[Rfam]
RNA sequence: UUGCUGUGAUGACUAUCGUAGGACACCUUUGUAAUACCCAUGAAAUAAGAGUUCUUUCUGAGCAAC
Number, nucleotide and partner (000 for none) at each position: 001u065002u064003g063004c062005u000006g000007u000008g000009a000010u000011g000012a000013c000014u000015a000016u000017c000018g000019u000020a000021g000022g000023a000024c000025a000026c000027c000028u000029u000030u000031g000032u000033a000034a000035u000036a000037c000038c000039c000040a000041u000042g000043a000044a000045a000046u000047a000048a000049g000050a000051g000052u000053u000054c000055u000056u000057u000058c000059u000060g000061a000062g004063c003064a002065a001066c000